[Rfam]
RNA sequence: CUUACUCUGUGUUAAACACACACACUGGUCGACACAUAAUCCGGGGUGCCCAGAUAUUUUGGGUCGGUAUUACGGGACUGGUGGAGGUAUAAC
Numbered sequence: 001c002u003u004a005c006u007c008u009g010u011g012u013u014a015a016a017c018a019c020a021c022a023c024a025c026u027g028g029u030c031g032a033c034a035c036a037u038a039a040u041c042c043g044g045g046g047u048g049c050c051c052a053g054a055u056a057u058u059u060u061g062g063g064u065c066g067g068u069a070u071u072a073c074g075g076g077a078c079u080g081g082u083g084g085a086g087g088u089a090u091a092a093c
Stems, first nucleotide, its partner, number of pairs: 023083008035074001037072003041067003048064005
Annotation:
A member of the RNA family "t44 RNA" from Candidatus Williamhamiltonella defendens, 93 nucleotides long. Rfam describes the family as follows. This family consists of a number of bacterial RNA genes of between 135 and 170 bases in length. The family's RNA type in Rfam is small RNA. Taxonomically the source falls in Candidatus Williamhamiltonella defendens (Bacteria, Pseudomonadati, Enterobacteriaceae, aphid secondary symbionts). It is one of the family's seed sequences.